This 143-nucleotide sequence from Bacillus sp. MUM 13 belongs to the Rfam family "c-di-AMP riboswitch aptamer (ydaO/yuaA leader)".
Lineage of the source: Bacteria > Bacillota > Bacilli > Caryophanales > Bacillus.
A search with the family's covariance model found it, with a score of 90 bits.
Nucleotides: 143
Base pairs, nucleotide, nucleotide: 011128012127013126014125018026019025027123028122029121030120031119032118037063038062064108065107066106072083073082074081075080086102087101088100089099
Number, partner (000 for none) and nucleotide at each position: 001000a002000u003000u004000u005000c006000u007000a008000a009000a010000u011128c012127g013126c014125u015000g016000a017000g018026u019025c020000a021000a022000u023000u024000c025019g026018a027123a028122c029121g030120g031119g032118g033000a034000a035000a036000c037063c038062a039000u040000u041000u042000u043000u044000g045000u046000g047000g048000c049000a050000u051000a052000u053000u054000c055000u056000u057000g058000c059000c060000a061000c062038u063037g064108g065107g066106g067000u068000g069000a070000a071000u072083c073082c074081u075080a076000u077000u078000u079000a080075u081074a082073g083072g084000u085000a086102g087101g088100g089099c090000u091000a092000c093000u094000c095000u096000u097000u098000g099089g100088u101087c102086c103000a104000a105000a106066u107065c108064c109000g110000a111000c112000a113000g114000c115000u116000a117000a118032c119031u120030c121029c122028g123027u124000a125014g126013g127012c128011g129000u130000a131000u132000a133000g134000g135000a136000g137000a138000a139000g140000a141000a142000g143000g
The base pairs follow the family's consensus structure.